[Rfam]
This 218-nucleotide sequence from Paenibacillus monticola belongs to the Rfam family "Group II catalytic intron D1-D4-6".
Gene Ontology term of the family: Group II intron splicing.
RNA sequence: GAAAUCCUGCUUGGAAAGGCUAAAGCCAAGCCAGCAAUAGCGAGUCUUGGACGAGUGAUUUCAGACGUUAAGCGUAGACAGCCAGAUAGCAGGCCUGAAUGUGAUUGAGCCUCGAAAUGAGUAAAUCGGAGAGGUCGACGUUUUCGAAAGUACGGAAGACUAUAUUCAUUCAUACGUUAAAGGCAAGUAUGAAUGAACUCUCCCUGGGUCGAAGAGCC
Numbered sequence: 001g002a003a004a005u006c007c008u009g010c011u012u013g014g015a016a017a018g019g020c021u022a023a024a025g026c027c028a029a030g031c032c033a034g035c036a037a038u039a040g041c042g043a044g045u046c047u048u049g050g051a052c053g054a055g056u057g058a059u060u061u062c063a064g065a066c067g068u069u070a071a072g073c074g075u076a077g078a079c080a081g082c083c084a085g086a087u088a089g090c091a092g093g094c095c096u097g098a099a100u101g102u103g104a105u106u107g108a109g110c111c112u113c114g115a116a117a118u119g120a121g122u123a124a125a126u127c128g129g130a131g132a133g134g135u136c137g138a139c140g141u142u143u144u145c146g147a148a149a150g151u152a153c154g155g156a157a158g159a160c161u162a163u164a165u166u167c168a169u170u171c172a173u174a175c176g177u178u179a180a181a182g183g184c185a186a187g188u189a190u191g192a193a194u195g196a197a198c199u200c201u202c203c204c205u206g207g208g209u210c211g212a213a214g215a216g217c218c
Stems, first nucleotide, its partner, number of pairs: 013035001018032002021029001025184002038084001040082002044079004048074002050069004054059001106212001107210001109209004114204001128203006134160003139154003165197011
Record summary
Lineage of the source: Bacteria > Bacillati > Bacilli > Caryophanales > Paenibacillus. For this family Rfam cites "The ins and outs of group II introns" (Bonen and Vogel, Trends Genet, 2001).